Rfam assigns this 149-nucleotide RNA from Salmonella enterica to the family "Salmonella enterica sRNA STnc361". The sequence is in the family's curated seed alignment. Rfam classes the family as a small RNA.
[Rfam]
RNA sequence: UUUAAAGUAAGGAAUAUCUUAUUAGCGCGAACAGCUAAGGCUAAUUUGAAUAUUAAUUUAAUGAAGAGUACGCCUGGCGCGUCACAAAGGAAAUAUCUGCUUUUCGCCUGAUGUGUUACAAAAAAUAAAGUAGCACAUUUUGUUAAAAA
Numbered sequence: 001u002u003u004a005a006a007g008u009a010a011g012g013a014a015u016a017u018c019u020u021a022u023u024a025g026c027g028c029g030a031a032c033a034g035c036u037a038a039g040g041c042u043a044a045u046u047u048g049a050a051u052a053u054u055a056a057u058u059u060a061a062u063g064a065a066g067a068g069u070a071c072g073c074c075u076g077g078c079g080c081g082u083c084a085c086a087a088a089g090g091a092a093a094u095a096u097c098u099g100c101u102u103u104u105c106g107c108c109u110g111a112u113g114u115g116u117u118a119c120a121a122a123a124a125a126u127a128a129a130g131u132a133g134c135a136c137a138u139u140u141u142g143u144u145a146a147a148a149a
Stems, first nucleotide, its partner, number of pairs: 001147005010109003017049002021045006065098003073090003076083002110139010